Annotation
Rfam assigns this 71-nucleotide RNA sequence from Serratia proteamaculans to the family "tpke11". The sequence is in the family's curated seed alignment.

RNA sequence: UACCGCAAACCAGCACGGGCGUCGAGGCAACUCUACGCCCGUGCACGCAUGUUAAGGGUUACAGAAAUAAU
Numbered sequence: 001u002a003c004c005g006c007a008a009a010c011c012a013g014c015a016c017g018g019g020c021g022u023c024g025a026g027g028c029a030a031c032u033c034u035a036c037g038c039c040c041g042u043g044c045a046c047g048c049a050u051g052u053u054a055a056g057g058g059u060u061a062c063a064g065a066a067a068u069a070a071u
Stems, first nucleotide, its partner, number of pairs: 005010001013044009024033003
Rfam links the family to the GO term response to temperature stimulus. For this family Rfam cites "Computational identification of noncoding RNAs in E. coli by comparative genomics" (Rivas et al., Curr Biol, 2001). The source organism's lineage runs through Bacteria, Pseudomonadati, Pseudomonadota, Enterobacterales and Serratia proteamaculans. The family's consensus secondary structure was predicted with WAR. By type it is a small RNA. In Yersinia located in ICR upstream dnaJ (chaperone)gene. Has temperature responsive RNA structure.